[Rfam]
c-di-GMP-I-GGC riboswitch aptamer: an 85-nucleotide RNA sequence from Desulfosporosinus orientis.
The family has 40 seed sequences and 1,298 matches in Rfam 15.1.
Its Rfam clan is "c-di-GMP_I riboswitch clan".
RNA sequence: AAAGACAAAGGCAAACCCAGCUAAAGCUGGGGACGCAAAGCCACGGAUCUUACACGUAAGGGUGAUGAUGGCCGGGCUGCCUACU
Numbered sequence: 001a002a003a004g005a006c007a008a009a010g011g012c013a014a015a016c017c018c019a020g021c022u023a024a025a026g027c028u029g030g031g032g033a034c035g036c037a038a039a040g041c042c043a044c045g046g047a048u049c050u051u052a053c054a055c056g057u058a059a060g061g062g063u064g065a066u067g068a069u070g071g072c073c074g075g076g077c078u079g080c081c082u083a084c085u
Stems, first nucleotide, its partner, number of pairs: 001085001003082002011036002016031006034071001039078004044074003047069003
Dot-bracket structure: (.((......((...((((((....))))))..[))..((((.((((((.................))).])))))))..))..)